[Rfam]
RNA sequence: UGCCAGUGAGGAGAGCAAAUAUCCUGUCUUAACCCAGUUCUAGCCUCAGAGCCAGUAAUGGUGAACCCACUGAGGUUAGCUGGGAGAGAGGAUGAGAAUUUGUUCCAUAAGGAACUGUCUGAGGUAC
Numbered sequence: 001u002g003c004c005a006g007u008g009a010g011g012a013g014a015g016c017a018a019a020u021a022u023c024c025u026g027u028c029u030u031a032a033c034c035c036a037g038u039u040c041u042a043g044c045c046u047c048a049g050a051g052c053c054a055g056u057a058a059u060g061g062u063g064a065a066c067c068c069a070c071u072g073a074g075g076u077u078a079g080c081u082g083g084g085a086g087a088g089a090g091g092a093u094g095a096g097a098a099u100u101u102g103u104u105c106c107a108u109a110a111g112g113a114a115c116u117g118u119c120u121g122a123g124g125u126a127c
Stems, first nucleotide, its partner, number of pairs: 001126004

Small nucleolar RNA SNORD22: a 127-nucleotide RNA from Pteropus alecto. The literature on the family includes a 1994 paper in Science by Tycowski et al., "Requirement for intron-encoded U22 small nucleolar RNA in 18S ribosomal RNA maturation". NCBI's taxonomy places the organism under Eukaryota, Opisthokonta, Bilateria, Pteropodidae, Pteropus. Rfam links the family to the GO terms RNA processing and nucleolus.